[Rfam]
RNA sequence: CAGGCAUGAUGAGGAUCAAUUUAUUCAAACAUUAUCUGAUUAUCAUGAUGAUUUGAAACCUCCUACUCAUUCUGA
Numbered sequence: 001c002a003g004g005c006a007u008g009a010u011g012a013g014g015a016u017c018a019a020u021u022u023a024u025u026c027a028a029a030c031a032u033u034a035u036c037u038g039a040u041u042a043u044c045a046u047g048a049u050g051a052u053u054u055g056a057a058a059c060c061u062c063c064u065a066c067u068c069a070u071u072c073u074g075a
Stems, first nucleotide, its partner, number of pairs: 006070004032051002036047001

Shown here is a 75-nucleotide RNA from Hibiscus syriacus, a member of the family "Small nucleolar RNA Z105". The family's consensus secondary structure was predicted with CMfinder.